[Rfam]
A member of the RNA family "TPP riboswitch aptamer (THI element)" from Acinetobacter baylyi, 130 nucleotides long. The base pairs follow the family's consensus structure, which is taken from published work.
Nucleotides: 130
Base pairs, nucleotide, nucleotide: 006118007117008116009115010114011080012079013078017032018031019030020029021028039073040072041071042070086111087110088109089108092105093104094103095102
Number, partner (000 for none) and nucleotide at each position: 001000g002000c003000a004000u005000g006118c007117u008116u009115g010114a011080c012079g013078g014000a015000g016000c017032g018031c019030g020029a021028g022000u023000a024000a025000c026000a027000a028021c029020u030019c031018g032017c033000u034000g035000a036000g037000a038000u039073u040072g041071g042070g043000u044000a045000a046000a047000u048000c049000u050000g051000u052000u053000u054000u055000u056000u057000g058000a059000a060000c061000u062000g063000a064000u065000u066000u067000g068000a069000u070042c071041c072040c073039a074000a075000g076000u077000a078013c079012c080011g081000u082000u083000g084000a085000a086111c087110c088109u089108g090000a091000u092105c093104a094103g095102g096000u097000u098000a099000a100000u101000a102095c103094c104093u105092g106000c107000g108089u109088a110087g111086g112000a113000a114010u115009c116008a117007a118006g119000u120000c121000a122000u123000c124000a125000a126000a127000a128000a129000a130000c